[Rfam]
RNA: Alphaproteobacteria transfer-messenger RNA
RNA sequence: CGGGUUGGACUACGCCGAGAUUGCCCCUAUAUUAGCCCUGUUCGGGUUCGCCCGGACUAUGGCGAUAAAUGCGCUCAUAAUAAGCGGACCGGACCCGGGUGCGAUUCCCGGCGGCUCCACCAAAAUCUCUCACCGCGUUAUCGGCGGGAGCUGCGGGGCCGACUAGCAUCGACGGACGUGUAAAGGGGAUUGCUUUCGCUCGUCCUGGCCCACCGUAUCGGGCCUUUAUCUAACUGCGAACGAUAACUUCGCUGGAGAAGUCCGCCUCGCCGC
Numbered sequence: 001c002g003g004g005u006u007g008g009a010c011u012a013c014g015c016c017g018a019g020a021u022u023g024c025c026c027c028u029a030u031a032u033u034a035g036c037c038c039u040g041u042u043c044g045g046g047u048u049c050g051c052c053c054g055g056a057c058u059a060u061g062g063c064g065a066u067a068a069a070u071g072c073g074c075u076c077a078u079a080a081u082a083a084g085c086g087g088a089c090c091g092g093a094c095c096c097g098g099g100u101g102c103g104a105u106u107c108c109c110g111g112c113g114g115c116u117c118c119a120c121c122a123a124a125a126u127c128u129c130u131c132a133c134c135g136c137g138u139u140a141u142c143g144g145c146g147g148g149a150g151c152u153g154c155g156g157g158g159c160c161g162a163c164u165a166g167c168a169u170c171g172a173c174g175g176a177c178g179u180g181u182a183a184a185g186g187g188g189a190u191u192g193c194u195u196u197c198g199c200u201c202g203u204c205c206u207g208g209c210c211c212a213c214c215g216u217a218u219c220g221g222g223c224c225u226u227u228a229u230c231u232a233a234c235u236g237c238g239a240a241c242g243a244u245a246a247c248u249u250c251g252c253u254g255g256a257g258a259a260g261u262c263c264g265c266c267u268c269g270c271c272g273c
Base pairs, nucleotide, nucleotide: 040057041056042055043054044053045052046051061200062199063198064197065196071193072192073191074188075187076186085178086177089175090174091173095111096110097109098108099107112161113160114159115158116157117156118155201215202214207224208223209222210221211220